[Rfam]
Shown here is a 47-nucleotide RNA sequence from Limibacillus halophilus, a member of the family "chrB-b RNA". The source organism's lineage runs through Bacteria, Pseudomonadati, Alphaproteobacteria, Rhodovibrionaceae and Limibacillus. By type it is a cis-regulatory element. The base pairs follow the family's consensus structure, which is taken from published work.
RNA sequence: UCGGGCAAUGCGGACGCCCGGUUAGACGGUUGUCGUCCAAGUUCCGC
Numbered sequence: 001u002c003g004g005g006c007a008a009u010g011c012g013g014a015c016g017c018c019c020g021g022u023u024a025g026a027c028g029g030u031u032g033u034c035g036u037c038c039a040a041g042u043u044c045c046g047c
Stems, first nucleotide, its partner, number of pairs: 001021006010047005025037005